Rfam assigns this 153-nucleotide sequence from Roseobacter sp. SK209-2-6 to the family "Ruegeria cis2 sRNA". A reference for the family is Rivers et al. (2016), "Experimental Identification of Small Non-Coding RNAs in the Model Marine Bacterium Ruegeria pomeroyi DSS-3", Front Microbiol. Lineage of the source: Bacteria > Pseudomonadati > Alphaproteobacteria > Roseobacteraceae > Roseobacter. Rfam classes the family as a small RNA.
[Rfam]
RNA sequence: AUUGCUGUGAUGUGGGUUGUAAUUGAUAAAGGCAAAGCCGCGCGCUUGGUCGAUGCAAUGGAACAGCGGGUUCCAGUCAAACAUUUUGAGCAUGAAAGGCGGCAGGGUGUUGGCAAGGAACAUCUUGCCCGAAGCAAUCAUAUUGGCGCGUUG
Numbered sequence: 001a002u003u004g005c006u007g008u009g010a011u012g013u014g015g016g017u018u019g020u021a022a023u024u025g026a027u028a029a030a031g032g033c034a035a036a037g038c039c040g041c042g043c044g045c046u047u048g049g050u051c052g053a054u055g056c057a058a059u060g061g062a063a064c065a066g067c068g069g070g071u072u073c074c075a076g077u078c079a080a081a082c083a084u085u086u087u088g089a090g091c092a093u094g095a096a097a098g099g100c101g102g103c104a105g106g107g108u109g110u111u112g113g114c115a116a117g118g119a120a121c122a123u124c125u126u127g128c129c130c131g132a133a134g135c136a137a138u139c140a141u142a143u144u145g146g147c148g149c150g151u152u153g
Stems, first nucleotide, its partner, number of pairs: 002035003006032001008030001013025003039055002041052002064153005070082003087146001089144002092141003100131003103127006110119002